[Rfam]
RNA sequence: CCAAAAUAUUAUAUUUUUUCUAUAAAAAAAAUGGAAAAAAAUUA
Numbered sequence: 001c002c003a004a005a006a007u008a009u010u011a012u013a014u015u016u017u018u019u020c021u022a023u024a025a026a027a028a029a030a031a032u033g034g035a036a037a038a039a040a041a042u043u044a
Stems, first nucleotide, its partner, number of pairs: 014040010

Background:
Rfam assigns this 44-nucleotide sequence from Rhinopithecus bieti to the family "KRAS 3' UTR cis-regulatory element". AU-rich 49 nt fragment in KRAS 3'UTR. Its sequence but not the secondary is necessary and sufficient for reporter repression in HeLa cells. The source organism's lineage runs through Eukaryota, Metazoa, Craniata, Haplorrhini and Rhinopithecus.